The record is an 81-nucleotide RNA sequence from Maylandia zebra, which matches "mir-194 microRNA precursor family" in Rfam.
The organism belongs to Maylandia zebra complex, within Eukaryota.
The match comes from Rfam's covariance-model search (83 bits).

RNA sequence: UGGUGCUUGCUGGAUGUAACAGCAACUCCAUGUGGAAGCUGUGUCAGUUCCAGUGGAGGUGCUGUUACUUGCAGAGAUCUA
Numbered sequence: 001u002g003g004u005g006c007u008u009g010c011u012g013g014a015u016g017u018a019a020c021a022g023c024a025a026c027u028c029c030a031u032g033u034g035g036a037a038g039c040u041g042u043g044u045c046a047g048u049u050c051c052a053g054u055g056g057a058g059g060u061g062c063u064g065u066u067a068c069u070u071g072c073a074g075a076g077a078u079c080u081a
Base pairs, nucleotide, nucleotide: 010074011073012072016068017067018066019065020064021063022062023061026058027057028056029055030054031053033052034051035050